[Rfam]
RNA sequence: GCCAGAUGUGUGACGGCCGUUCCUGAAGCCUGUCUGCAGGUGGGGACGGCCUGAUGACCCCUGAC
Dot-bracket structure: (.(((.........((((((((((.....(((....)))..)))))))))).........))).)
Selenocysteine insertion sequence 1: a 65-nucleotide RNA sequence from Triplophysa tibetana. About the family: The incorporation of selenocysteine into a protein sequence is directed by an in-frame UGA codon (usually a stop codon) within the coding region of the mRNA. Selenoprotein mRNAs contain a conserved secondary structure in the 3' UTR that is required for the distinction of UGA stop from UGA selenocysteine. The selenocysteine insertion sequence (SECIS) is around 60 nt in length and adopts a hairpin structure which is sufficiently well-defined and conserved to act as a computational screen for selenoprotein genes. The family's RNA type in Rfam is cis-regulatory element. NCBI's taxonomy places the organism under Eukaryota, Chordata, Teleostei, Cypriniphysae, Triplophysa. Gene Ontology term of the family: selenocysteine incorporation. The family's consensus secondary structure is taken from published work. A reference for the family is Walczak et al. (1996), "A novel RNA structural motif in the selenocysteine insertion element of eukaryotic selenoprotein mRNAs", RNA.